Shown here is a 48-nucleotide sequence, a member of the family "DUF3800-XI RNA". Rfam describes the family as follows. Actinobacteria, Firmicutes, Proteobacteria, Spirochaetes (1 example). The base pairs follow the family's consensus structure, which is taken from published work.
[Rfam]
RNA sequence: UGGGCUGGUCGAGAGACCCAGGUCCACCGAAAGGCGGGGAUUUACCCC
Numbered sequence: 001u002g003g004g005c006u007g008g009u010c011g012a013g014a015g016a017c018c019c020a021g022g023u024c025c026a027c028c029g030a031a032a033g034g035c036g037g038g039g040a041u042u043u044a045c046c047c048c
Base pairs, nucleotide, nucleotide: 001026002025003024004023005022006021007018008017009016010015